Rfam assigns this 56-nucleotide RNA from Methylibium sp. NZG to the family "nhaA-I RNA". The organism belongs to Methylibium, within Bacteria. It is annotated as a riboswitch.

RNA sequence: GGGUGUUGGGCCGUCGCUGCGGCGCGGCAGGUUCAUGCGAUGGUCGGGCCGCCUCG
Numbered sequence: 001g002g003g004u005g006u007u008g009g010g011c012c013g014u015c016g017c018u019g020c021g022g023c024g025c026g027g028c029a030g031g032u033u034c035a036u037g038c039g040a041u042g043g044u045c046g047g048g049c050c051g052c053c054u055c056g
Stems, first nucleotide, its partner, number of pairs: 005028004010023003038056003042053003